[Rfam]
RNA sequence: GUGGCCAUCUUACUGGGCAGCAUUGGAUAGUGUCUGAUCUCUAAUACUGCCUGGUAAUGAUGGUGGC
Numbered sequence: 001g002u003g004g005c006c007a008u009c010u011u012a013c014u015g016g017g018c019a020g021c022a023u024u025g026g027a028u029a030g031u032g033u034c035u036g037a038u039c040u041c042u043a044a045u046a047c048u049g050c051c052u053g054g055u056a057a058u059g060a061u062g063g064u065g066g067c
Stems, first nucleotide, its partner, number of pairs: 002066001004064006010057011022045006
RNA: mir-8/mir-141/mir-200 microRNA precursor family
Organism: Microtus ochrogaster